[Rfam]
RNA sequence: AACCUUUUUCUACAAACACCUUGGAUGUUCUUUAAAUAAGAUGAAAAGGCUAUUAUUCUAAUGAACAACAUGAAGCCAAAAGAAAAUCCAAGGCGUUUGCAGAAAGAGGUU
Numbered sequence: 001a002a003c004c005u006u007u008u009u010c011u012a013c014a015a016a017c018a019c020c021u022u023g024g025a026u027g028u029u030c031u032u033u034a035a036a037u038a039a040g041a042u043g044a045a046a047a048g049g050c051u052a053u054u055a056u057u058c059u060a061a062u063g064a065a066c067a068a069c070a071u072g073a074a075g076c077c078a079a080a081a082g083a084a085a086a087u088c089c090a091a092g093g094c095g096u097u098u099g100c101a102g103a104a105a106g107a108g109g110u111u
Stems, first nucleotide, its partner, number of pairs: 001111005007105005013099005019093008028084006041071003052062004